RNA sequence: ACGCAUUUCCAUUCACUACGGAUCGUCCGGCACGUACCUGCCGGUGAAGGAGAGAGAC
Number, nucleotide and partner (000 for none) at each position: 001a000002c000003g000004c000005a000006u000007u000008u000009c050010c049011a000012u048013u047014c046015a045016c000017u000018a000019c000020g000021g000022a000023u000024c000025g000026u000027c044028c043029g042030g041031c040032a039033c000034g000035u000036a000037c000038c000039u032040g031041c030042c029043g028044g027045u015046g014047a013048a012049g010050g009051a000052g000053a000054g000055a000056g000057a000058c000
RNA: msiK RNA